[Rfam]
RNA sequence: CCACCGUGAGUCGGAGUGAAUGGGUCGUUACGAGACCCAGGAAAGUCCCCGGGCCCAAUUCUGCAGAAAUGCAGCCCUGGAAACGGGGUCUCUUCGUGCAUCGAGUCUCUCUGUGCCUUGCGCAGGGAGGGCUGAGACGCGUGUGGAGCCUUGACCUGAUGCCGAAGUAACUAGGCCGAAUGUUCUACAGUUAUUCACUCGGUUCAUAUUAGUCUGUGGACCAACAGAACGGGGCUUAUGACUCAUGGUG
Numbered sequence: 001c002c003a004c005c006g007u008g009a010g011u012c013g014g015a016g017u018g019a020a021u022g023g024g025u026c027g028u029u030a031c032g033a034g035a036c037c038c039a040g041g042a043a044a045g046u047c048c049c050c051g052g053g054c055c056c057a058a059u060u061c062u063g064c065a066g067a068a069a070u071g072c073a074g075c076c077c078u079g080g081a082a083a084c085g086g087g088g089u090c091u092c093u094u095c096g097u098g099c100a101u102c103g104a105g106u107c108u109c110u111c112u113g114u115g116c117c118u119u120g121c122g123c124a125g126g127g128a129g130g131g132c133u134g135a136g137a138c139g140c141g142u143g144u145g146g147a148g149c150c151u152u153g154a155c156c157u158g159a160u161g162c163c164g165a166a167g168u169a170a171c172u173a174g175g176c177c178g179a180a181u182g183u184u185c186u187a188c189a190g191u192u193a194u195u196c197a198c199u200c201g202g203u204u205c206a207u208a209u210u211a212g213u214c215u216g217u218g219g220a221c222c223a224a225c226a227g228a229a230c231g232g233g234g235c236u237u238a239u240g241a242c243u244c245a246u247g248g249u250g
Base pairs, nucleotide, nucleotide: 002250003249004248005247006246007245008244009243014200015199016198017197018196019195022038023037024036025035026034028032043237044236045235047234048233049232050231062073063072064071065070074089075088076087077086078085079084104172105171106170111167112166114164115163118159119158120157129151130150131149132148139144202221203220204219205218206217207216
Shown here is a 250-nucleotide sequence from Populus trichocarpa, a member of the family "RNase MRP". It is annotated as a ribozyme. The family's consensus secondary structure is taken from published work. Lineage of the source: Eukaryota > Embryophyta > Spermatophyta > fabids > Populus. Rfam describes the family as follows. RNase MRP is an enzymatically active ribonucleoprotein with two distinct roles in eukaryotes. In mitochondria it plays a direct role in the initiation of mitochondrial DNA replication. In the nucleus it is involved in precursor rRNA processing, where it cleaves the internal transcribed spacer 1 between 18S and 5.8S rRNAs.